[Rfam]
RNA sequence: CGGUGGUGCAUUGUAGUUGCAUUGCACGUGCAGGUGAAGAUGUGCAAUGCCCCUCCAGUGCAGCCCUG
Numbered sequence: 001c002g003g004u005g006g007u008g009c010a011u012u013g014u015a016g017u018u019g020c021a022u023u024g025c026a027c028g029u030g031c032a033g034g035u036g037a038a039g040a041u042g043u044g045c046a047a048u049g050c051c052c053c054u055c056c057a058g059u060g061c062a063g064c065c066c067u068g
Base pairs, nucleotide, nucleotide: 001068002067003066006064007062008061009060010059011058012057013056015054016053019050021048022047023046024045025044026043027042
A member of the RNA family "mir-33 microRNA precursor family" from Python bivittatus, 68 nucleotides long. The source organism's lineage runs through Eukaryota, Tetrapoda, Lepidosauria, Pythonidae and Python. The literature on the family includes a 2010 paper in Mol Hum Reprod by Ahn et al., "MicroRNA transcriptome in the newborn mouse ovaries determined by massive parallel sequencing".